Background:
Shown here is a 118-nucleotide RNA from Alteromonas sp. KUL42, a member of the family "Histidine operon leader". At least 6 amino acid operons are known to be regulated by attenuation. In each a leader sequence of 150-200 bp is found upstream of the first gene in the operon. This leader sequence can assume two different secondary structures known as the terminator and the anti-terminator structure. The match comes from Rfam's covariance-model search (67 bits). The family's consensus secondary structure is taken from published work. The literature on the family includes a 1982 paper in Annu Rev Genet by Kolter and Yanofsky, "Attenuation in amino acid biosynthetic operons". By type it is a cis-regulatory leader. NCBI's taxonomy places the organism under Bacteria, Pseudomonadati, Gammaproteobacteria, Alteromonadales, Alteromonas.

[Rfam]
RNA sequence: ACAUCACCAUCACCACAAAGCAUAACCUUUCAGGUUCGUGCUGGAAGGUCUAUGUAUCCUUCCAGUGGCGCAGAUAAAAAAUUUCUCGACCCUCGGAAGGAAACUUCCGGGGGUUUUU
Numbered sequence: 001a002c003a004u005c006a007c008c009a010u011c012a013c014c015a016c017a018a019a020g021c022a023u024a025a026c027c028u029u030u031c032a033g034g035u036u037c038g039u040g041c042u043g044g045a046a047g048g049u050c051u052a053u054g055u056a057u058c059c060u061u062c063c064a065g066u067g068g069c070g071c072a073g074a075u076a077a078a079a080a081a082u083u084u085c086u087c088g089a090c091c092c093u094c095g096g097a098a099g100g101a102a103a104c105u106u107c108c109g110g111g112g113g114u115u116u117u118u
Stems, first nucleotide, its partner, number of pairs: 008040003012035003020031001041065008088115012